[Rfam]
RNA sequence: AACGCGAUGAUGAUUCAUAUAGGUUUUCGGCAGUGGUGUCAUCUGUCACCGUGAGCCUUCAAACCAAAAAGCGACUUCUCUUUCCACUGAGUGUU
Number, nucleotide and partner (000 for none) at each position: 001a095002a094003c093004g092005c091006g000007a000008u000009g000010a000011u000012g000013a000014u000015u000016c000017a000018u000019a000020u000021a000022g000023g000024u000025u000026u000027u000028c000029g000030g000031c000032a000033g000034u000035g000036g000037u000038g000039u000040c000041a000042u000043c000044u000045g000046u000047c000048a000049c000050c000051g000052u000053g000054a000055g000056c000057c000058u000059u000060c000061a000062a000063a000064c000065c000066a000067a000068a000069a000070a000071g000072c000073g000074a000075c000076u000077u000078c000079u000080c000081u000082u000083u000084c000085c000086a000087c000088u000089g000090a000091g005092u004093g003094u002095u001
RNA: Small nucleolar RNA Z152/R70/R12/
Organism: Hordeum vulgare